[Rfam]
RNA sequence: CCGCUGCUCAGGUACUUAGUGACUCUCAAUCAUCUAUUGCUUUGCAUACCUUGAGGGUCGCUCUGUGCCUGUGCCGCCU
Numbered sequence: 001c002c003g004c005u006g007c008u009c010a011g012g013u014a015c016u017u018a019g020u021g022a023c024u025c026u027c028a029a030u031c032a033u034c035u036a037u038u039g040c041u042u043u044g045c046a047u048a049c050c051u052u053g054a055g056g057g058u059c060g061c062u063c064u065g066u067g068c069c070u071g072u073g074c075c076g077c078c079u
Stems, first nucleotide, its partner, number of pairs: 004076001006074002009071007018062011029047002